Shown here is a 140-nucleotide RNA sequence from Paenibacillus popilliae, a member of the family "Group II catalytic intron D1-D4-4". Rfam describes the family as follows. Group II introns are found in rRNA, tRNA and mRNA of organelles in fungi, plants and protists, and also in mRNA in bacteria. The base pairs follow the family's consensus structure. The literature on the family includes a 2001 paper in Trends Genet by Bonen and Vogel, "The ins and outs of group II introns". Its family is annotated with Group II intron splicing in the Gene Ontology. The source organism's lineage runs through Bacteria, Bacillota, Bacilli, Paenibacillus and Paenibacillus popilliae.
Nucleotides: 140
Stems, first nucleotide, its partner, number of pairs: 020043001022041003051090005056081006065072001098114002102110002119131001
Number, partner (000 for none) and nucleotide at each position: 001000u002000a003000g004000c005000c006000g007000g008000u009000g010000a011000a012000a013000g014000u015000c016000u017000g018000g019000u020043c021000g022041c023040g024039g025000g026000a027000g028000g029000a030000g031000c032000c033000a034000a035000g036000u037000c038000c039024u040023c041022g042000a043020g044000u045000a046000g047000c048000u049000a050000g051090g052089a053088u054087a055086c056081c057080u058079g059078c060077g061076u062000a063000u064000g065072g066000c067000g068000a069000a070000a071000u072065c073000c074000g075000u076061a077060c078059g079058u080057a081056g082000a083000a084000g085000c086055g087054u088053a089052u090051c091000g092000a093000u094000g095000a096000a097000a098114g099113u100000a101000c102110c103109u104000g105000u106000c107000g108000g109103a110102g111000a112000a113099a114098u115000a116000g117000u118000g119131g120000a121000a122000u123000a124000u125000u126000u127000u128000g129000c130000u131119u132000g133000c134000a135000a136000u137000c138000a139000g140000a